[Rfam]
RNA sequence: UACCGUGCCACUUGGCAAAACAUCAAAAUUCAUGGACUGUAUUAGUAGGUUGCACUCAUUUGUGCAAGUCGAAAGUUCGGUUCAGUGCAUACAG
Numbered sequence: 001u002a003c004c005g006u007g008c009c010a011c012u013u014g015g016c017a018a019a020a021c022a023u024c025a026a027a028a029u030u031c032a033u034g035g036a037c038u039g040u041a042u043u044a045g046u047a048g049g050u051u052g053c054a055c056u057c058a059u060u061u062g063u064g065c066a067a068g069u070c071g072a073a074a075g076u077u078c079g080g081u082u083c084a085g086u087g088c089a090u091a092c093a094g
Base pairs, nucleotide, nucleotide: 006017007016008015009014041076042075048070051066052065053064054063
RNA: RT-17 RNA